[Rfam]
RNA: Group II catalytic intron D1-D4-3
RNA sequence: GGAAGGGCGACCGACCGUGGAGAGGAAGCGUGGAGCGAAGACGUCGGGCUGAUGAACAAGAAGCGGAUACGAGGCGCUGUCGAGCAGGGUGAGCGGGCAAACGACCGCGAAGCUCUGGUGGCCAAGGCUCGGCGGCGUAGAUCCGACAGCCGUGCGUCGAAGGUGGAUGCUC
Numbered sequence: 001g002g003a004a005g006g007g008c009g010a011c012c013g014a015c016c017g018u019g020g021a022g023a024g025g026a027a028g029c030g031u032g033g034a035g036c037g038a039a040g041a042c043g044u045c046g047g048g049c050u051g052a053u054g055a056a057c058a059a060g061a062a063g064c065g066g067a068u069a070c071g072a073g074g075c076g077c078u079g080u081c082g083a084g085c086a087g088g089g090u091g092a093g094c095g096g097g098c099a100a101a102c103g104a105c106c107g108c109g110a111a112g113c114u115c116u117g118g119u120g121g122c123c124a125a126g127g128c129u130c131g132g133c134g135g136c137g138u139a140g141a142u143c144c145g146a147c148a149g150c151c152g153u154g155c156g157u158c159g160a161a162g163g164u165g166g167a168u169g170c171u172c
Stems, first nucleotide, its partner, number of pairs: 001016002005012002028172001030170003035164002040158005046153001047151005064145005074138003078134007087115004093108004